[Rfam]
RNA sequence: CGAAGUCCCGCAAUGGCACUGCAUGAAUUCACGGUUGUUGCUCAGAGCCGUGCAUCCAUCGGUUCCAUACCGGGCUCGUCGUCG
Numbered sequence: 001c002g003a004a005g006u007c008c009c010g011c012a013a014u015g016g017c018a019c020u021g022c023a024u025g026a027a028u029u030c031a032c033g034g035u036u037g038u039u040g041c042u043c044a045g046a047g048c049c050g051u052g053c054a055u056c057c058a059u060c061g062g063u064u065c066c067a068u069a070c071c072g073g074g075c076u077c078g079u080c081g082u083c084g
Base pairs, nucleotide, nucleotide: 007074008073009072010071013068014067015066016065018063019062020061021060025056026055028054030052032050033049034048035044

Shown here is an 84-nucleotide RNA from Cylicostephanus goldi, a member of the family "mir-228 microRNA precursor family".
The family's consensus secondary structure was predicted with RNAalifold.
Its family is annotated with miRNA-mediated post-transcriptional gene silencing and RISC complex in the Gene Ontology.
Rfam 15.1 lists 30 matches to the family in 27 species.